RNA sequence: GGUCUUAGAGUCAGGGAGCCACCCUGUGUUCCACAUGUAUGUUGAAUUAUGUGAACACAGCAGGUGGUAUCUCAGACACUGGGUACCG
Numbered sequence: 001g002g003u004c005u006u007a008g009a010g011u012c013a014g015g016g017a018g019c020c021a022c023c024c025u026g027u028g029u030u031c032c033a034c035a036u037g038u039a040u041g042u043u044g045a046a047u048u049a050u051g052u053g054a055a056c057a058c059a060g061c062a063g064g065u066g067g068u069a070u071c072u073c074a075g076a077c078a079c080u081g082g083g084u085a086c087c088g
Stems, first nucleotide, its partner, number of pairs: 008079001010077003015073001016071002018068002021065003024060003028056001030054002
Description: mir-317 microRNA precursor family: an 88-nucleotide RNA sequence from Notodromas monacha. Its family is annotated with miRNA-mediated post-transcriptional gene silencing and RISC complex in the Gene Ontology. The family has 25 seed sequences and 153 matches in Rfam 15.1.